[Rfam]
Nucleotides: 100
Stems, first nucleotide, its partner, number of pairs: 004097001006095002008092001010090001020053001022051002028044003054089001056087001059084002062081001065079002068076001
Number, partner (000 for none) and nucleotide at each position: 001000a002000u003000g004097u005000a006095a007094a008092u009000a010090g011000u012000a013000u014000u015000c016000c017000a018000a019000a020053a021000u022051c023050a024000u025000u026000g027000g028044a029043a030042g031000a032000g033000g034000a035000a036000a037000g038000a039000c040000g041000a042030c043029u044028u045000u046000u047000c048000u049000a050023u051022g052000u053020u054089g055000c056087a057000a058000u059084u060083a061000c062081a063000a064000g065079g066078g067000c068076u069000a070000u071000a072000g073000a074000u075000a076068a077000u078066c079065u080000a081062u082000a083060u084059a085000u086000a087056u088000a089054u090010u091000c092008a093000g094007u095006u096000g097004a098000a099000a100000a
A member of the RNA family "Clostridioides difficile sRNA included into helicase gene" from Clostridium tyrobutyricum, 100 nucleotides long. This element was identified by RNA deep sequencing of Clostridioides difficile 630 where it is located within gene CD0749 (putative DNA helicase, UvrD/REP type) in the same direction as the gene. A strong transcription start site for this RNA was experimentally confirmed, in the 3' region of gene CD0749. The 3' end of the sRNA has not been confirmed and its length was arbitrarily set to 100nt. For inclusion criteria: Only sequences from order Clostridiales were included, mostly because the starting sequence belonged to this order and the large majority of sequences found by the different RFAM search iterations belonged to this order as well. By type it is a small RNA. A search with the family's covariance model found it, with a score of 65 bits. The organism belongs to Clostridium tyrobutyricum, within Bacteria. The base pairs follow the family's consensus structure, which was predicted with LocARNA. A reference for the family is Soutourina et al. (2013), "Genome-wide identification of regulatory RNAs in the human pathogen Clostridium difficile", PLoS Genet.